[Rfam]
RNA sequence: GGUCGGUUGGCUCAAUGGUAGAGCGUCCGCCUCCUACUUCAUGGGACUCGAUCCCACAAGUCCGAAAGCGGAAGGUUGUGGGUUCGAGUCCCAUGCUGAUCG
Numbered sequence: 001g002g003u004c005g006g007u008u009g010g011c012u013c014a015a016u017g018g019u020a021g022a023g024c025g026u027c028c029g030c031c032u033c034c035u036a037c038u039u040c041a042u043g044g045g046a047c048u049c050g051a052u053c054c055c056a057c058a059a060g061u062c063c064g065a066a067a068g069c070g071g072a073a074g075g076u077u078g079u080g081g082g083u084u085c086g087a088g089u090c091c092c093a094u095g096c097u098g099a100u101c102g
Stems, first nucleotide, its partner, number of pairs: 001101007010024004026072005078094005
This 102-nucleotide RNA sequence from Zymoseptoria tritici belongs to the Rfam family "tRNA". NCBI's taxonomy places the organism under Eukaryota, Dikarya, Ascomycota, Zymoseptoria, Zymoseptoria tritici. The family's RNA type in Rfam is transfer RNA. Pairs were carried over by alignment from the consensus structure, which is taken from published work.